[Rfam]
RNA sequence: UCGCGACUUCAGGAUAGGGUGCGAUUCCCGACCGGCGGUGAAAGCCCGCGACUCCCGAGAGGGACUGACGCAGUGAGAUUCUGCGGCCGACAGUAAAGUCUGGAUGGUAGAAGCGCGG
Numbered sequence: 001u002c003g004c005g006a007c008u009u010c011a012g013g014a015u016a017g018g019g020u021g022c023g024a025u026u027c028c029c030g031a032c033c034g035g036c037g038g039u040g041a042a043a044g045c046c047c048g049c050g051a052c053u054c055c056c057g058a059g060a061g062g063g064a065c066u067g068a069c070g071c072a073g074u075g076a077g078a079u080u081c082u083g084c085g086g087c088c089g090a091c092a093g094u095a096a097a098g099u100c101u102g103g104a105u106g107g108u109a110g111a112a113g114c115g116c117g118g
Base pairs, nucleotide, nucleotide: 003116004115005114007113008112009111010110017029018028019027031099032098033089034088035049036048037047038046044087045086053064054063069085070084071083072082073081091102092101093100